[Rfam]
Background:
Rfam assigns this 98-nucleotide RNA from Parendozoicomonas haliclonae to the family "TPP riboswitch aptamer (THI element)". A search with the family's covariance model found it, with a score of 68 bits. Rfam links the family to the GO term thiamine pyrophosphate binding.
RNA sequence: UUCCGUUGGUUGGGGUGCUCCGGUUGGUGCCGGGGCUGAGAAUAACCCAUAGACCUGAUCCAGAUAAUACUGGCGUAGGGAACCGGCGGGAAAAGAAU
Numbered sequence: 001u002u003c004c005g006u007u008g009g010u011u012g013g014g015g016u017g018c019u020c021c022g023g024u025u026g027g028u029g030c031c032g033g034g035g036c037u038g039a040g041a042a043u044a045a046c047c048c049a050u051a052g053a054c055c056u057g058a059u060c061c062a063g064a065u066a067a068u069a070c071u072g073g074c075g076u077a078g079g080g081a082a083c084c085g086g087c088g089g090g091a092a093a094a095g096a097a098u
Stems, first nucleotide, its partner, number of pairs: 006086005011049004017036007054079004060073004